[Rfam]
RNA sequence: GGAGAGGUGGCUGAGUGGUUGAAGGCACCGCACUCGAAAUGCGGCAUAGGGGUGACUCUAUCGUGGGUUCAAAUCCCAUCCUCUCUG
Numbered sequence: 001g002g003a004g005a006g007g008u009g010g011c012u013g014a015g016u017g018g019u020u021g022a023a024g025g026c027a028c029c030g031c032a033c034u035c036g037a038a039a040u041g042c043g044g045c046a047u048a049g050g051g052g053u054g055a056c057u058c059u060a061u062c063g064u065g066g067g068u069u070c071a072a073a074u075c076c077c078a079u080c081c082u083c084u085c086u087g
Stems, first nucleotide, its partner, number of pairs: 001086007010026003028044005063079005
RNA: tRNA
Organism: Candidatus Tokpelaia sp. JSC161